RNA sequence: GCGGGCUUGGAUUUAUGAUGCUGUGGGCCCGCAUCAGCGCGUCUAAGCUGGUGAUCACGGGGAUCUUUGCACGCCAGCAAGUAUAGCCGCGUCUGCUUAAAGUAGGCCGCCAGAGGAAGCUCGCAUCGCUUCUGGUGCUCCGAAUUUCAUAUAGCAGCACGCGCCGCGCGCUUCAAAGGGGUGAGUCGUGUUGGACGGCUCAGAAAGCGCGGAACGCCA
Numbered sequence: 001g002c003g004g005g006c007u008u009g010g011a012u013u014u015a016u017g018a019u020g021c022u023g024u025g026g027g028c029c030c031g032c033a034u035c036a037g038c039g040c041g042u043c044u045a046a047g048c049u050g051g052u053g054a055u056c057a058c059g060g061g062g063a064u065c066u067u068u069g070c071a072c073g074c075c076a077g078c079a080a081g082u083a084u085a086g087c088c089g090c091g092u093c094u095g096c097u098u099a100a101a102g103u104a105g106g107c108c109g110c111c112a113g114a115g116g117a118a119g120c121u122c123g124c125a126u127c128g129c130u131u132c133u134g135g136u137g138c139u140c141c142g143a144a145u146u147u148c149a150u151a152u153a154g155c156a157g158c159a160c161g162c163g164c165c166g167c168g169c170g171c172u173u174c175a176a177a178g179g180g181g182u183g184a185g186u187c188g189u190g191u192u193g194g195a196c197g198g199c200u201c202a203g204a205a206a207g208c209g210c211g212g213a214a215c216g217c218c219a
Stems, first nucleotide, its partner, number of pairs: 001032007047078006066177004088163005093157005164212006182202006